[Rfam]
RNA: DUF3800-VIII RNA
Organism: Candidatus Termititenax persephonae
RNA sequence: AUUGCCUUGUGAUUACGAAGGCCUAAGUUCCUGCUUGGGCAUAUAUGUAGUAGUUGUGGGGUUCU
Numbered sequence: 001a002u003u004g005c006c007u008u009g010u011g012a013u014u015a016c017g018a019a020g021g022c023c024u025a026a027g028u029u030c031c032u033g034c035u036u037g038g039g040c041a042u043a044u045a046u047g048u049a050g051u052a053g054u055u056g057u058g059g060g061g062u063u064c065u
Stems, first nucleotide, its partner, number of pairs: 001065001004062013021040008